[Rfam]
A member of the RNA family "Early nodulin 40" from Senna tora, 237 nucleotides long.
Gene Ontology term of the family: nodulation.
The base pairs follow the family's consensus structure, which is taken from published work.
The organism belongs to Senna, within Eukaryota.
RNA sequence: AUGAAGCUGUGUUGGCAAAAAUCCAGCCAUGGAUCUUAGAGAAGGCAUGGAGGGUAGGGGGUUCCUAAAUCCCAGACUCUUGAGGCACCUCCAUCUUCAACAAUUAGCUUGAGCUUUUAGCUAAUGGCUUCUUCUUCUUCUUCUUGGAGAAAGGGAUAGGGAUACGAGGAGAAGCAGAAGCUGAAGGCAAGUGAACCGGCAAGUCACGGAAAGGCAAUGGACUCUGUAUAGGGUCCU
Numbered sequence: 001a002u003g004a005a006g007c008u009g010u011g012u013u014g015g016c017a018a019a020a021a022u023c024c025a026g027c028c029a030u031g032g033a034u035c036u037u038a039g040a041g042a043a044g045g046c047a048u049g050g051a052g053g054g055u056a057g058g059g060g061g062u063u064c065c066u067a068a069a070u071c072c073c074a075g076a077c078u079c080u081u082g083a084g085g086c087a088c089c090u091c092c093a094u095c096u097u098c099a100a101c102a103a104u105u106a107g108c109u110u111g112a113g114c115u116u117u118u119a120g121c122u123a124a125u126g127g128c129u130u131c132u133u134c135u136u137c138u139u140c141u142u143c144u145u146g147g148a149g150a151a152a153g154g155g156a157u158a159g160g161g162a163u164a165c166g167a168g169g170a171g172a173a174g175c176a177g178a179a180g181c182u183g184a185a186g187g188c189a190a191g192u193g194a195a196c197c198g199g200c201a202a203g204u205c206a207c208g209g210a211a212a213g214g215c216a217a218u219g220g221a222c223u224c225u226g227u228a229u230a231g232g233g234u235c236c237u
Stems, first nucleotide, its partner, number of pairs: 058090002104195002107192002122186001220235005